[Rfam]
RNA sequence: UAUUAGGAUUAAAAGAGGAGAUACAAGUGCUGUGUUGUCGUUCCCCCUGCUCAAAAUAAAGCUGUUUCUUAACUAUACCUGUCUGCUAUACCCCUGUAGCAGCCAGGGACGCUUGGUCUCAUACAU
Dot-bracket structure: ...((((........(.((.((((....).))).)).).......))))............................((((.((((............)))).))))...................
RNA: Small nucleolar RNA SNORA63